[Rfam]
RNA sequence: AUGGAGAUAUGGCAUAAAGCCAGAGAUAGACAGAGAGAGGCAGAAAAGAGGGAGAGAGAAAGACUAAUUAGACUGUCAACUUGAAAAGAUUCACAUCUCAUUUU
Numbered sequence: 001a002u003g004g005a006g007a008u009a010u011g012g013c014a015u016a017a018a019g020c021c022a023g024a025g026a027u028a029g030a031c032a033g034a035g036a037g038a039g040g041c042a043g044a045a046a047a048g049a050g051g052g053a054g055a056g057a058g059a060a061a062g063a064c065u066a067a068u069u070a071g072a073c074u075g076u077c078a079a080c081u082u083g084a085a086a087a088g089a090u091u092c093a094c095a096u097c098u099c100a101u102u103u104u
Stems, first nucleotide, its partner, number of pairs: 004099004010042002013039001050094001052092002
RNA: ctgf/hcs24 CAESAR